[Rfam]
RNA: Yersinia sRNA 206
Organism: Yersinia enterocolitica
RNA sequence: CUGUGAUGUGUAUCACAUAAAAAUAAAGAUAUUUACAGGAGCAACCCAUGAAACUGAUUAACAAAGUUAUCGCUAUGUUCGAAAAAAUGAGUGUCUCAUUUGGUACCAUCAACGGUUAAUUAUUUCAUUAUUAAUCCGUAAAUCUUCACAAUAUUCUGGAUGAAAUUCAGUUGAUAGGUAAUGGUACUGAACCUCACGAAAGGUCAGCAGUCACGUAACAGCAUAAAUGUAAUUACUUGUUUCCGAAUUUGUUAUUAUUAGUCAAUAUAUCGUAUUUUGAUUUGUAUGAUCCUGAAUAUUUGCACUAA
Numbered sequence: 001c002u003g004u005g006a007u008g009u010g011u012a013u014c015a016c017a018u019a020a021a022a023a024u025a026a027a028g029a030u031a032u033u034u035a036c037a038g039g040a041g042c043a044a045c046c047c048a049u050g051a052a053a054c055u056g057a058u059u060a061a062c063a064a065a066g067u068u069a070u071c072g073c074u075a076u077g078u079u080c081g082a083a084a085a086a087a088u089g090a091g092u093g094u095c096u097c098a099u100u101u102g103g104u105a106c107c108a109u110c111a112a113c114g115g116u117u118a119a120u121u122a123u124u125u126c127a128u129u130a131u132u133a134a135u136c137c138g139u140a141a142a143u144c145u146u147c148a149c150a151a152u153a154u155u156c157u158g159g160a161u162g163a164a165a166u167u168c169a170g171u172u173g174a175u176a177g178g179u180a181a182u183g184g185u186a187c188u189g190a191a192c193c194u195c196a197c198g199a200a201a202g203g204u205c206a207g208c209a210g211u212c213a214c215g216u217a218a219c220a221g222c223a224u225a226a227a228u229g230u231a232a233u234u235a236c237u238u239g240u241u242u243c244c245g246a247a248u249u250u251g252u253u254a255u256u257a258u259u260a261g262u263c264a265a266u267a268u269a270u271c272g273u274a275u276u277u278u279g280a281u282u283u284g285u286a287u288g289a290u291c292c293u294g295a296a297u298a299u300u301u302g303c304a305c306u307a308a
Base pairs, nucleotide, nucleotide: 004111005110006109007108008106009105010104011103026058029055032053033052034051036050037049038047039046075094076093077092078091079090080089112139113138114137115136119132121130122129141306143304150300151299152298153297154296155295156294158292159291160290161289163287165248166247167246168245170243173241174240175239176238177237178236180234181233182232186211187210188209189208191204192203193202194200221230222229223228260275263272